[Rfam]
RNA sequence: GGGACUGUGUGAUAUGUUUGAUAUUCGGUUGUUUUCCUUAUAUCAUGUCAACUAAAUAUCAGACAUAUUCCUACAGACUC
Numbered sequence: 001g002g003g004a005c006u007g008u009g010u011g012a013u014a015u016g017u018u019u020g021a022u023a024u025u026c027g028g029u030u031g032u033u034u035u036c037c038u039u040a041u042a043u044c045a046u047g048u049c050a051a052c053u054a055a056a057u058a059u060c061a062g063a064c065a066u067a068u069u070c071c072u073a074c075a076g077a078c079u080c
Base pairs, nucleotide, nucleotide: 005076006075007074008073009072011069012068013067014066015065016064017063018062019061020060021059022058023057024056025055027053028052029051030050031049
The record is an 80-nucleotide sequence from Cyprinus carpio, which matches "mir-190 microRNA precursor family" in Rfam. On this family, see Bar et al., Stem Cells 2008: "MicroRNA discovery and profiling in human embryonic stem cells by deep sequencing of small RNA libraries". NCBI's taxonomy places the organism under Eukaryota, Metazoa, Osteoglossocephalai, Cyprinus, Cyprinus carpio.